[Rfam]
Description: Shown here is a 72-nucleotide RNA sequence from Branchiostoma floridae, a member of the family "mir-2057 microRNA precursor family". It is one of the family's seed sequences. Rfam 15.1 lists 2 matches to the family in 2 species. The organism belongs to Branchiostoma, within Eukaryota.
RNA sequence: CACGGGUGAGAAGUUAGCCAACCAUCCGGCUGGUAUGUGCAACCCGGGUGGUGGUUGACUUCUUUCUCGUUA
Numbered sequence: 001c002a003c004g005g006g007u008g009a010g011a012a013g014u015u016a017g018c019c020a021a022c023c024a025u026c027c028g029g030c031u032g033g034u035a036u037g038u039g040c041a042a043c044c045c046g047g048g049u050g051g052u053g054g055u056u057g058a059c060u061u062c063u064u065u066c067u068c069g070u071u072a
Stems, first nucleotide, its partner, number of pairs: 002070005008064013022051008033040002